[Rfam]
RNA sequence: AGAAGAGACGAACUCCGAACUUGUUUUCCUAAGGGCAACUAAGGGAAAUUAGUCGUCGAAGACAAGGCUAAUGACAUAGCCUUUUCUUCAUAGGGUGUAUUUGGAAACGAGUAUGCCUCCCGGUGUGGAAAGGAGGGAAGAUGAAAAAAUU
Dot-bracket structure: .....(......((((..(((.(((((((...((....))..))))))).)))....(((((......................)))))...(((((((((((....)))))))))))((......))...))))......).........

The family of this 151-nucleotide RNA from Vallitalea pronyensis is "Molybdenum/Tungsten riboswitch aptamer (Moco RNA motif)". The source organism's lineage runs through Bacteria, Bacillati, Bacillota, Vallitaleaceae and Vallitalea. The family's consensus secondary structure is taken from published work. A search with the family's covariance model found it, with a score of 65 bits. Its family is annotated with molybdenum ion binding, tungstate binding and regulation of gene expression in the Gene Ontology.